[Rfam]
A member of the RNA family "Antizyme RNA frameshifting stimulation element" from Albula goreensis, 56 nucleotides long.
Its family is annotated with translational frameshifting in the Gene Ontology.
For this family Rfam cites "Identification of a new antizyme mRNA +1 frameshifting stimulatory pseudoknot in a subset of diverse invertebrates and its apparent absence in intermediate species" (Ivanov et al., J Mol Biol, 2004).
The family's consensus secondary structure is taken from published work.

RNA sequence: UGAUGUCCCUCACCCACUAACGAAGAUCCCGGGUGGGCGAGGGAUUGGCAGGGAUC
Numbered sequence: 001u002g003a004u005g006u007c008c009c010u011c012a013c014c015c016a017c018u019a020a021c022g023a024a025g026a027u028c029c030c031g032g033g034u035g036g037g038c039g040a041g042g043g044a045u046u047g048g049c050a051g052g053g054a055u056c
Base pairs, nucleotide, nucleotide: 006044007043008042009041010040011039013037014036015035016034017033018032025056026055027054028053029052030051